RNA sequence: CGGUGCUUGCAUCACCUGACACCGGAUGACCGGAUUAAUCGGAUUAGCUCGCUCACUUGUGGACGAGCCCGCAUCUUCCGGGUCCCGUCCCUCCGUCACGGAGGU
Numbered sequence: 001c002g003g004u005g006c007u008u009g010c011a012u013c014a015c016c017u018g019a020c021a022c023c024g025g026a027u028g029a030c031c032g033g034a035u036u037a038a039u040c041g042g043a044u045u046a047g048c049u050c051g052c053u054c055a056c057u058u059g060u061g062g063a064c065g066a067g068c069c070c071g072c073a074u075c076u077u078c079c080g081g082g083u084c085c086c087g088u089c090c091c092u093c094c095g096u097c098a099c100g101g102a103g104g105u
Stems, first nucleotide, its partner, number of pairs: 025057001027055002031051003035047004061090005067083005
Dot-bracket structure: ........................(.((..(((.((((.....)))).)))..)).)...(((((.(((((.......)))))..)))))...............
A member of the RNA family "NLPC-P60 RNA" from Streptomyces sp. ScaeMP-e10, 105 nucleotides long. It is one of the family's seed sequences. The family's RNA type in Rfam is cis-regulatory element.